[Rfam]
RNA sequence: GGAAGUGUGUGUCAGGUGAUGGCACAACUGAACAUUGAUCUUACAUUGAUUUAGUGCAGAUCUGCUCAGUAUAGUGUUAUCACGUGGUUUCUAGUAGCCAAAGCGGAACUUCCCGAUGGCUUGGCUCUCGGUAGAGAUCCGCUUCUGGGCUCCUCGAAUCACCGCGGCUGUUUCCAAAUUGGAGUACUCUCCCUCUGUAAUUUCGUCACUUCCAUUACUCGGCACUACACGCCACCGUAGUCUGCUUUCUUUUUG
Number, nucleotide and partner (000 for none) at each position: 001g213002g212003a211004a210005g209006u208007g207008u000009g000010u000011g000012u000013c000014a000015g000016g083017u082018g081019a080020u079021g000022g000023c000024a000025c000026a000027a000028c069029u068030g067031a000032a000033c064034a063035u000036u000037g062038a061039u060040c059041u000042u056043a055044c054045a000046u000047u000048g000049a000050u000051u000052u000053a000054g044055u043056g042057c000058a000059g040060a039061u038062c037063u034064g033065c000066u000067c030068a029069g028070u000071a000072u000073a000074g000075u000076g000077u000078u000079a020080u019081c018082a017083c016084g000085u000086g000087g000088u000089u000090u000091c000092u000093a000094g000095u000096a000097g000098c000099c000100a000101a000102a000103g000104c000105g000106g000107a000108a000109c000110u000111u000112c000113c000114c000115g000116a000117u000118g000119g000120c000121u000122u000123g000124g000125c000126u000127c000128u000129c000130g000131g000132u000133a000134g000135a000136g000137a000138u000139c000140c000141g000142c000143u000144u000145c000146u000147g000148g000149g000150c000151u000152c000153c000154u000155c000156g000157a000158a000159u000160c000161a000162c000163c000164g000165c000166g000167g000168c000169u000170g000171u000172u000173u000174c000175c000176a000177a000178a000179u000180u000181g000182g000183a000184g000185u000186a000187c000188u000189c000190u000191c000192c000193c000194u000195c000196u000197g000198u000199a000200a000201u000202u000203u000204c000205g000206u000207c007208a006209c005210u004211u003212c002213c001214a000215u000216u000217a000218c000219u000220c000221g246222g245223c244224a241225c240226u239227a238228c237229a000230c000231g000232c000233c000234a000235c000236c000237g228238u227239a226240g225241u224242c000243u000244g223245c222246u221247u000248u000249c000250u000251u000252u000253u000254u000255g000
Background
Shown here is a 255-nucleotide RNA from Nezara viridula, a member of the family "Arthropod 7SK RNA".